[Rfam]
RNA sequence: UUAUGUACCGAGACACAUUCAGUGUCUGACUGGUCUACAAGGGAUACUGAUCUUAGUGAUUAAGCGUACUGUAAGUACGUCAGUCUCUUGGCAAGCGGGGGCAACCUCGCUUUUUUUAUGGA
Numbered sequence: 001u002u003a004u005g006u007a008c009c010g011a012g013a014c015a016c017a018u019u020c021a022g023u024g025u026c027u028g029a030c031u032g033g034u035c036u037a038c039a040a041g042g043g044a045u046a047c048u049g050a051u052c053u054u055a056g057u058g059a060u061u062a063a064g065c066g067u068a069c070u071g072u073a074a075g076u077a078c079g080u081c082a083g084u085c086u087c088u089u090g091g092c093a094a095g096c097g098g099g100g101g102c103a104a105c106c107u108c109g110c111u112u113u114u115u116u117u118a119u120g121g122a
Stems, first nucleotide, its partner, number of pairs: 008033003011027006038090006046084004050060003064080006093112008
A member of the RNA family "DUF3800-I RNA", 122 nucleotides long. Actinobacteria, Firmicutes, Fusobacteria, Proteobacteria (1 example), Tenericutes (2 examples). Rfam's curators put it in the seed alignment.